tRNA: a 71-nucleotide RNA sequence from bacterium F11. Its family is annotated with triplet codon-amino acid adaptor activity in the Gene Ontology. It scores 64 bits against the family's covariance model.
RNA sequence: GGGAGUGUCGGUUAAUGGCAAACCACCGGUCUCCAAAACCGGGACUGUAGGUUCAAGUCCUACCACUCCCG
Numbered sequence: 001g002g003g004a005g006u007g008u009c010g011g012u013u014a015a016u017g018g019c020a021a022a023c024c025a026c027c028g029g030u031c032u033c034c035a036a037a038a039c040c041g042g043g044a045c046u047g048u049a050g051g052u053u054c055a056a057g058u059c060c061u062a063c064c065a066c067u068c069c070c071g
Stems, first nucleotide, its partner, number of pairs: 001070007010024004026042005047063005